RNA: mir-204 microRNA precursor family
Organism: Myotis lucifugus
RNA sequence: ACGGGGCUGCUGGGCUUCCCUUUGUCAUCCUUUGCCUCGGGCUCGGAGCGGGGCAGGGACGGCAAAGGGGUGCUCAGCUGUCACCUCU
Numbered sequence: 001a002c003g004g005g006g007c008u009g010c011u012g013g014g015c016u017u018c019c020c021u022u023u024g025u026c027a028u029c030c031u032u033u034g035c036c037u038c039g040g041g042c043u044c045g046g047a048g049c050g051g052g053g054c055a056g057g058g059a060c061g062g063c064a065a066a067g068g069g070g071u072g073c074u075c076a077g078c079u080g081u082c083a084c085c086u087c088u
Stems, first nucleotide, its partner, number of pairs: 017070006024063002028059005034054004